[Rfam]
RNA sequence: AACUGGCUUAAUCUCAGCUGGCAACUGUGAGCAGUUAAUAGUUCUCACAGUGGUAUCUGGGAUUAUGCUUAAC
Numbered sequence: 001a002a003c004u005g006g007c008u009u010a011a012u013c014u015c016a017g018c019u020g021g022c023a024a025c026u027g028u029g030a031g032c033a034g035u036u037a038a039u040a041g042u043u044c045u046c047a048c049a050g051u052g053g054u055a056u057c058u059g060g061g062a063u064u065a066u067g068c069u070u071a072a073c
Stems, first nucleotide, its partner, number of pairs: 005069003009065009021054002023051001026049006
RNA: mir-216 microRNA precursor family